mir-21 microRNA precursor family: a 73-nucleotide RNA sequence from Parambassis ranga. For this family Rfam cites "The developmental miRNA profiles of zebrafish as determined by small RNA cloning" (Chen et al., Genes Dev, 2005). Rfam links the family to the GO terms miRNA-mediated post-transcriptional gene silencing and RISC complex.
RNA sequence: CGUCGGCUAGCUUAUCAGACUGGUGUUGGCUCUUAAAUGUGUACGGCAAUAGCAGUCUGUAAGCUGGCUGAAG
Numbered sequence: 001c002g003u004c005g006g007c008u009a010g011c012u013u014a015u016c017a018g019a020c021u022g023g024u025g026u027u028g029g030c031u032c033u034u035a036a037a038u039g040u041g042u043a044c045g046g047c048a049a050u051a052g053c054a055g056u057c058u059g060u061a062a063g064c065u066g067g068c069u070g071a072a073g
Stems, first nucleotide, its partner, number of pairs: 008066008018057005024051005030045001